[Rfam]
RNA sequence: GGAUUACUCCUUUACGCUUUCGCGUUUGGUUGAUAAAGAUUUGCACCUCUAUCAAACCGGGUAAUCCCACCUUCUGGCAAGACCUACUGUCUGAUCAAAUCUGAACUACUACAUAUAAAUUUGGAGUGGUGUGGCCAGUAUACGUUUUUUAUCUAUUAGUCCUAUGGAUAUCUAUAUUUACUAUUUGGUCCUAUGGAAUUGUCU
Numbered sequence: 001g002g003a004u005u006a007c008u009c010c011u012u013u014a015c016g017c018u019u020u021c022g023c024g025u026u027u028g029g030u031u032g033a034u035a036a037a038g039a040u041u042u043g044c045a046c047c048u049c050u051a052u053c054a055a056a057c058c059g060g061g062u063a064a065u066c067c068c069a070c071c072u073u074c075u076g077g078c079a080a081g082a083c084c085u086a087c088u089g090u091c092u093g094a095u096c097a098a099a100u101c102u103g104a105a106c107u108a109c110u111a112c113a114u115a116u117a118a119a120u121u122u123g124g125a126g127u128g129g130u131g132u133g134g135c136c137a138g139u140a141u142a143c144g145u146u147u148u149u150u151a152u153c154u155a156u157u158a159g160u161c162c163u164a165u166g167g168a169u170a171u172c173u174a175u176a177u178u179u180a181c182u183a184u185u186u187g188g189u190c191c192u193a194u195g196g197a198a199u200u201g202u203c204u
Stems, first nucleotide, its partner, number of pairs: 001067007009060002014025004028058004032053004037048002069202002075144002077141001081136001084134002089106002091103001093101003108130004162196003170189003174185001175183002
Proteobacterial sRNA psRNA2: a 204-nucleotide RNA from Nitrosomonas oligotropha. The literature on the family includes a 2010 paper in FEMS Microbiol Lett by Gvakharia et al., "Computational prediction and transcriptional analysis of sRNAs in Nitrosomonas europaea". A search with the family's covariance model found it, with a score of 137 bits. The family has 7 seed sequences and 122 matches in Rfam 15.1. The family's RNA type in Rfam is small RNA.